[Rfam]
RNA sequence: CGGAGUUUCUUGUUUCUCUAAAAAACAAGUGGUGCGGAUGGGGUUACCCCGCCUGGUUUACAGUUUCCAGUCAAAAAACUGACAAACUAUCUUUUA
Numbered sequence: 001c002g003g004a005g006u007u008u009c010u011u012g013u014u015u016c017u018c019u020a021a022a023a024a025a026c027a028a029g030u031g032g033u034g035c036g037g038a039u040g041g042g043g044u045u046a047c048c049c050c051g052c053c054u055g056g057u058u059u060a061c062a063g064u065u066u067c068c069a070g071u072c073a074a075a076a077a078a079c080u081g082a083c084a085a086a087c088u089a090u091c092u093u094u095u096a
Stems, first nucleotide, its partner, number of pairs: 009029007039051005053070004061081005